[Rfam]
RNA sequence: AAAAGCAAAGAUAAAAACACAAACUGGUUGGUAGUCCAGUUGCGGCUUCUCAUCUUCCAAUCUCUCCUCUCAAGCCGUCAGUAACCUUCCUCCUUAGGUCGUCCGUUCUUUGCCCAUUCAAA
Numbered sequence: 001a002a003a004a005g006c007a008a009a010g011a012u013a014a015a016a017a018c019a020c021a022a023a024c025u026g027g028u029u030g031g032u033a034g035u036c037c038a039g040u041u042g043c044g045g046c047u048u049c050u051c052a053u054c055u056u057c058c059a060a061u062c063u064c065u066c067c068u069c070u071c072a073a074g075c076c077g078u079c080a081g082u083a084a085c086c087u088u089c090c091u092c093c094u095u096a097g098g099u100c101g102u103c104c105g106u107u108c109u110u111u112g113c114c115c116a117u118u119c120a121a122a
Stems, first nucleotide, its partner, number of pairs: 005113007022041006042078006089098003
A member of the RNA family "azaaromatic riboswitch aptamer (yjdF RNA)" from Enterocloster lavalensis, 122 nucleotides long. The match comes from Rfam's covariance-model search (87 bits).